[Rfam]
RNA: c-di-GMP-I riboswitch aptamer
Organism: Niallia nealsonii
RNA sequence: AUUCUUCAUUGGCAAACUUUACGAAAGUAAAGGACGCAAAGCCACGGGCCUAAUGCUUUUGCUAUGACAGCCGGGUUGCAAUA
Numbered sequence: 001a002u003u004c005u006u007c008a009u010u011g012g013c014a015a016a017c018u019u020u021a022c023g024a025a026a027g028u029a030a031a032g033g034a035c036g037c038a039a040a041g042c043c044a045c046g047g048g049c050c051u052a053a054u055g056c057u058u059u060u061g062c063u064a065u066g067a068c069a070g071c072c073g074g075g076u077u078g079c080a081a082u083a
Base pairs, nucleotide, nucleotide: 012037013036017032018031019030020029021028022027040077041076042075043074045073046072047071048068050066055062056061
Dot-bracket structure: ...........((...((((((....))))))...))..((((.((((.(....((....))...).)..)))))))......